Rfam assigns this 135-nucleotide RNA sequence from Papaver somniferum to the family "Small nucleolar RNA snoR74". Rfam links the family to the GO terms nucleolus and RNA processing.
RNA sequence: CAAAAAGCAGGGAUUUGUUGCCUUCGUGAACAUGUCUCUCGUUGAUGUCAGGUAAAUUAUAGUGAGUCAUGGUUAUUGGGUGAACUUCUUUAAAUCAUUUUAUUAACAGAAAGUUCAGUAAACGAUGAUACAUUA
Dot-bracket structure: ....(.(...((.(.((.............)).).))........).).................(((((.(((......(((((((.......................)))))))...))).)))))......